Source information:
The family of this 73-nucleotide RNA sequence from Branchiostoma floridae is "Mammalian CPEB3 ribozyme". A search with the family's covariance model found it, with a score of 60 bits.
[Rfam]
RNA sequence: CUACAUUACACGGGGACCAUAGAAGGAGCGUUCUCGUCGCGGUCCCUGUCAGGCUCGUCCUGCGAAUCCUUCU
Numbered sequence: 001c002u003a004c005a006u007u008a009c010a011c012g013g014g015g016a017c018c019a020u021a022g023a024a025g026g027a028g029c030g031u032u033c034u035c036g037u038c039g040c041g042g043u044c045c046c047u048g049u050c051a052g053g054c055u056c057g058u059c060c061u062g063c064g065a066a067u068c069c070u071u072c073u
Stems, first nucleotide, its partner, number of pairs: 013046006021073007028040003050062004